[Rfam]
RNA: FMN riboswitch aptamer (RFN element)
Organism: Savagea serpentis
RNA sequence: AUUCAUCUUCGGGGCAGGGUGUAAUUCCCGACCGGCGGUAAAAAACUCAUUCGUUUUAGAGCCCGCGAGCGAAAGCUGAUGUGGUGUAAAUCCACAGCCGACAGUAAAGUCUGGAUGGGAGAAGGUGAAG
Numbered sequence: 001a002u003u004c005a006u007c008u009u010c011g012g013g014g015c016a017g018g019g020u021g022u023a024a025u026u027c028c029c030g031a032c033c034g035g036c037g038g039u040a041a042a043a044a045a046c047u048c049a050u051u052c053g054u055u056u057u058a059g060a061g062c063c064c065g066c067g068a069g070c071g072a073a074a075g076c077u078g079a080u081g082u083g084g085u086g087u088a089a090a091u092c093c094a095c096a097g098c099c100g101a102c103a104g105u106a107a108a109g110u111c112u113g114g115a116u117g118g119g120a121g122a123a124g125g126u127g128a129a130g
Stems, first nucleotide, its partner, number of pairs: 003128008017029003031110002033100002035066004061098002069076002080096005102113003